[Rfam]
RNA sequence: ACCAUCCUUUUCUUGGGGUUGUCCAACGAGCACAGUGAGGGCAGGACUGCUAACACCUACACAACACGCUUGUAUCAACUAAAACUUUGCUUUAUGUUGGUGCAAUUUUUGAAAGA
Number, nucleotide and partner (000 for none) at each position: 001a000002c000003c000004a000005u000006c018007c017008u016009u015010u000011u000012c000013u000014u000015g009016g008017g007018g006019u000020u043021g042022u041023c040024c039025a000026a000027c000028g000029a000030g036031c035032a000033c000034a000035g031036u030037g000038a000039g024040g023041g022042c021043a020044g000045g000046a000047c000048u000049g000050c000051u000052a000053a000054c000055a000056c000057c000058u000059a000060c000061a000062c000063a000064a000065c000066a000067c000068g000069c000070u000071u000072g103073u102074a101075u100076c099077a098078a000079c000080u094081a093082a092083a091084a000085c089086u000087u000088u000089g085090c000091u083092u082093u081094a080095u000096g000097u000098u077099g076100g075101u074102g073103c072104a000105a000106u000107u000108u000109u000110u000111g000112a000113a000114a000115g000116a000
RNA: U4atac minor spliceosomal RNA
Organism: Otolemur garnettii